Annotation:
Shown here is a 76-nucleotide RNA sequence from Sus scrofa, a member of the family "mir-296 microRNA precursor family". The sequence is in the family's curated seed alignment. The source organism's lineage runs through Eukaryota, Deuterostomia, Amniota, Artiodactyla and Sus.
[Rfam]
RNA sequence: GACCCUUCCGGAGGGCCCCCCCCAAUCCUGUUGUGCUGGAUUCAGAGGGUUGGGCGGAGGCUUUCCUGAAGGCUCU
Numbered sequence: 001g002a003c004c005c006u007u008c009c010g011g012a013g014g015g016c017c018c019c020c021c022c023c024a025a026u027c028c029u030g031u032u033g034u035g036c037u038g039g040a041u042u043c044a045g046a047g048g049g050u051u052g053g054g055c056g057g058a059g060g061c062u063u064u065c066c067u068g069a070a071g072g073c074u075c076u
Base pairs, nucleotide, nucleotide: 004072005071006070007069008068011065012064013063014062015061016060017059019057020056021054022053023052024051025050026049027048028047029046031045032044033043
Its family is annotated with miRNA-mediated post-transcriptional gene silencing and RISC complex in the Gene Ontology.